[Rfam]
RNA sequence: GGACGAAGACGCGACUGGCGGCACCGGGAUGGGACGGACCAUCGGGGAGCUCGAGUUGUGAGGGUCGACCGCCUGGGUCCUCACG
Numbered sequence: 001g002g003a004c005g006a007a008g009a010c011g012c013g014a015c016u017g018g019c020g021g022c023a024c025c026g027g028g029a030u031g032g033g034a035c036g037g038a039c040c041a042u043c044g045g046g047g048a049g050c051u052c053g054a055g056u057u058g059u060g061a062g063g064g065u066c067g068a069c070c071g072c073c074u075g076g077g078u079c080c081u082c083a084c085g
Stems, first nucleotide, its partner, number of pairs: 004053003011050002015046002017073005029042004062080005

Record summary:
The record is an 85-nucleotide sequence from Dactylosporangium siamense, which matches "ZMP/ZTP riboswitch aptamer (pfl RNA motif)" in Rfam.